[Rfam]
RNA sequence: UCGUAGCACGAACCGGUGCUAAAGGGUCUCUGCCCCGACAACAACUGUCAGUAGCCGUUAGGCAGGACUCUUUAGCACCGGUUCUUGUUACGAA
Number, nucleotide and partner (000 for none) at each position: 001u000002c000003g091004u090005a089006g088007c087008a086009c000010g084011a083012a082013c081014c080015g079016g078017u077018g076019c075020u074021a073022a072023a071024g070025g069026g068027u067028c000029u066030c065031u000032g000033c000034c062035c061036c000037g000038a058039c057040a000041a000042c000043a000044a000045c051046u050047g000048u000049c000050a046051g045052u000053a000054g000055c000056c000057g039058u038059u000060a000061g035062g034063c000064a000065g030066g029067a027068c026069u025070c024071u023072u022073u021074a020075g019076c018077a017078c016079c015080g014081g013082u012083u011084c010085u000086u008087g007088u006089u005090a004091c003092g000093a000094a000
RNA: MIR5387 microRNA precursor family